A member of the RNA family "mir-395 microRNA precursor family" from Brachypodium distachyon, 86 nucleotides long.
mir-395 was identified in both Arabidopsis thaliana and Oryza sativa computationally and was later experimentally verified. mir-395 is thought to target mRNAs coding for ATP sulphurylases.
The base pairs follow the family's consensus structure, which was predicted with PFOLD.
On this family, see Jones-Rhoades and Bartel, Mol Cell 2004: "Computational Identification of Plant MicroRNAs and Their Targets, Including a Stress-Induced miRNA".
The match comes from Rfam's covariance-model search (75 bits).
Taxonomically the source falls in Brachypodium (Eukaryota, Streptophytina, Liliopsida, commelinids).
RNA sequence: GUAUUAUCAUGAGUUCCCUGCAAGCACUUCACGAGGCACUAUCCCAAGGGCUACUGUGAAGUGUUUGGGGGAACUCUUGGUGUCAC
Numbered sequence: 001g002u003a004u005u006a007u008c009a010u011g012a013g014u015u016c017c018c019u020g021c022a023a024g025c026a027c028u029u030c031a032c033g034a035g036g037c038a039c040u041a042u043c044c045c046a047a048g049g050g051c052u053a054c055u056g057u058g059a060a061g062u063g064u065u066u067g068g069g070g071g072a073a074c075u076c077u078u079g080g081u082g083u084c085a086c
Stems, first nucleotide, its partner, number of pairs: 005082005011076009022066012036052001